[Rfam]
A member of the RNA family "sok antitoxin (CssrC)" from Shewanella baltica, 163 nucleotides long. Also identified in Shigella as CssrC. The sequence is in the family's curated seed alignment. The base pairs follow the family's consensus structure, which is taken from published work.

Nucleotides: 163
Stems, first nucleotide, its partner, number of pairs: 001070003005067003011061013071091001074088001075086002092131005097124003103119004137153001139151002
Number, partner (000 for none) and nucleotide at each position: 001070g002069g003068g004000u005067g006066c007065u008000c009000u010000u011061g012060g013059c014058u015057u016056u017055u018054u019053a020052g021051c022050a023049a024000g025000a026000g027000c028000a029000u030000g031000g032000a033000a034000a035000u036000g037000c038000u039000g040000u041000u042000a043000u044000g045000u046000a047000a048000c049023u050022u051021g052020c053019u054018a055017g056016a057015a058014a059013g060012u061011u062000g063000a064000a065007a066006g067005c068003c069002c070001c071091g072000a073000a074088u075086g076085a077000a078000c079000u080000a081000u082000a083000a084000a085076u086075u087000c088074a089000a090000a091071c092131g093130a094129g095128g096127c097124c098123u099122a100000c101000a102000a103119u104118g105117u106116a107000c108000c109000u110000a111000a112000g113000c114000a115000a116106u117105a118104c119103a120000a121000a122099u123098a124097g125000u126000a127096g128095c129094c130093u131092c132000u133000u134000u135000a136000c137153u138000u139151u140150u141000a142000g143000g144000a145000g146000g147000c148000a149000a150140g151139a152000u153137a154000u155000g156000c157000c158000g159000a160000a161000a162000a163000g

Rfam classes the family as an antitoxin RNA.